Rfam assigns this 81-nucleotide RNA from Camphora micrantha to the family "Small nucleolar RNA R16". Lineage of the source: Eukaryota > Viridiplantae > Streptophytina > Tracheophyta > Camphora. A search with the family's covariance model found it, with a score of 72 bits. A reference for the family is Galardi et al. (2002), "Purified box C/D snoRNPs are able to reproduce site-specific 2'-O-methylation of target RNA in vitro", Mol Cell Biol.
RNA sequence: AGAGGCAGAUGACGUGAAUGAUCUUAAACUACACACUGAACUGCGUGUUGACUACAUCUCCGCUUAUUAACUGAUGCCUUU
Numbered sequence: 001a002g003a004g005g006c007a008g009a010u011g012a013c014g015u016g017a018a019u020g021a022u023c024u025u026a027a028a029c030u031a032c033a034c035a036c037u038g039a040a041c042u043g044c045g046u047g048u049u050g051a052c053u054a055c056a057u058c059u060c061c062g063c064u065u066a067u068u069a070a071c072u073g074a075u076g077c078c079u080u081u
Base pairs, nucleotide, nucleotide: 003079004078005077006076007075